Description: The record is a 154-nucleotide RNA from Amborella trichopoda, which matches "MIR8565 microRNA precursor family" in Rfam. Gene Ontology terms of the family: RISC complex and miRNA-mediated post-transcriptional gene silencing. It scores 141 bits against the family's covariance model.

RNA sequence: CCUCCACCCAUGUGUAUAGGACCCCAAAUGAUCAUCAUUAAAGUUGGUAUGGAUCUCUAGAAAAGUUAUCACAUGGGUGUGGGACUUGACUUUUCUAUAGAUCCGUACCAAAUUUAAUAGUGAUCAUUUGGAGUCCUAUACACAUGAGUGGGGA
Numbered sequence: 001c002c003u004c005c006a007c008c009c010a011u012g013u014g015u016a017u018a019g020g021a022c023c024c025c026a027a028a029u030g031a032u033c034a035u036c037a038u039u040a041a042a043g044u045u046g047g048u049a050u051g052g053a054u055c056u057c058u059a060g061a062a063a064a065g066u067u068a069u070c071a072c073a074u075g076g077g078u079g080u081g082g083g084a085c086u087u088g089a090c091u092u093u094u095c096u097a098u099a100g101a102u103c104c105g106u107a108c109c110a111a112a113u114u115u116a117a118u119a120g121u122g123a124u125c126a127u128u129u130g131g132a133g134u135c136c137u138a139u140a141c142a143c144a145u146g147a148g149u150g151g152g153g154a
Base pairs, nucleotide, nucleotide: 002153003152004151005150006149007148009146010145011144012143013142015140016139017138018137019136020135021134022133024131025130026129027128028127030125031124032123034121035120037118038117039116040115041114042113044111045110046109047108048107049106050105051104052103053102054101055100056099058097059096060095061094062093063092064091065090066089067088068087069082070081071080072079073078